[Rfam]
RNA sequence: GUACGACAAGGGCAAAGCCAUUGAAAAAUGGUGACGCAAAACUACAGGGGCUAAGUUUUUGGAUAAGCCAGCCAGUUAUCGAA
Numbered sequence: 001g002u003a004c005g006a007c008a009a010g011g012g013c014a015a016a017g018c019c020a021u022u023g024a025a026a027a028a029u030g031g032u033g034a035c036g037c038a039a040a041a042c043u044a045c046a047g048g049g050g051c052u053a054a055g056u057u058u059u060u061g062g063a064u065a066a067g068c069c070a071g072c073c074a075g076u077u078a079u080c081g082a083a
Stems, first nucleotide, its partner, number of pairs: 012037002017032006040077004047073002049069003056063002
Dot-bracket structure: ...........((...((((((....))))))...))..((((...(((((....((....))...)))..))))))......
A member of the RNA family "c-di-GMP-I riboswitch aptamer" from Salibacterium salarium, 83 nucleotides long.